[Rfam]
RNA sequence: GGCGGUGUAGCUCAGCUGGUCAGAGCAAGCGACUCAUAUUCGCUAGGUCCGGGGUUCAAAUCCCUGCACCGCCA
Number, nucleotide and partner (000 for none) at each position: 001g073002g072003c071004g070005g069006u068007g067008u000009a000010g026011c025012u024013c023014a000015g000016c000017u000018g000019g000020u000021c000022a000023g013024a012025g011026c010027a000028a044029g043030c042031g041032a040033c000034u000035c000036a000037u000038a000039u000040u032041c031042g030043c029044u028045a000046g000047g000048u000049c000050c066051g065052g064053g063054g062055u000056u000057c000058a000059a000060a000061u000062c054063c053064c052065u051066g050067c007068a006069c005070c004071g003072c002073c001074a000